[Rfam]
RNA sequence: AGAUUCCUUCAGGGCAGGGUGAAAUUCCCGACCGGCGGUAAUGGAGCUUAUUUCAGAGUCCGCGAGCCGAAAGGCUGAUCCGGUGAGAUGCCGGAGCCGACAGUAAAGUCUGGAUGGGAGAAGGAUGAU
Numbered sequence: 001a002g003a004u005u006c007c008u009u010c011a012g013g014g015c016a017g018g019g020u021g022a023a024a025u026u027c028c029c030g031a032c033c034g035g036c037g038g039u040a041a042u043g044g045a046g047c048u049u050a051u052u053u054c055a056g057a058g059u060c061c062g063c064g065a066g067c068c069g070a071a072a073g074g075c076u077g078a079u080c081c082g083g084u085g086a087g088a089u090g091c092c093g094g095a096g097c098c099g100a101c102a103g104u105a106a107a108g109u110c111u112g113g114a115u116g117g118g119a120g121a122a123g124g125a126u127g128a129u
Stems, first nucleotide, its partner, number of pairs: 005125006017029003031109002033099002035063004058097002066075003079095005101112003
Rfam assigns this 129-nucleotide RNA from Sporolactobacillus putidus to the family "FMN riboswitch aptamer (RFN element)". Taxonomically the source falls in Sporolactobacillus (Bacteria, Bacillota, Caryophanales, Sporolactobacillaceae). The match comes from Rfam's covariance-model search (123 bits).